[Rfam]
RNA sequence: UAAUAUAUAAUGCCGAAUCCUUAUAGGUACGGGGGGACCACUAAAUAUACAGGGGUGAAUCCGGUUAUCCGGAAGGGUUCUCUAUUCCUUCUCUUUUACCCUAACCCGACAGCUAACCUCGGAGGCAGAAGCCGCAAGGGAUA
Dot-bracket structure: ..........((((....((.....))..(((((....(............)(((.....((((....))))..((((...................))))...))).........)))))..))))................
This 143-nucleotide RNA from Propionispora vibrioides belongs to the Rfam family "c-di-AMP riboswitch aptamer (ydaO/yuaA leader)". Lineage of the source: Bacteria > Bacillati > Selenomonadales > Sporomusaceae > Propionispora. The literature on the family includes a 2004 paper in Proc Natl Acad Sci U S A by Barrick et al., "New RNA motifs suggest an expanded scope for riboswitches in bacterial genetic control".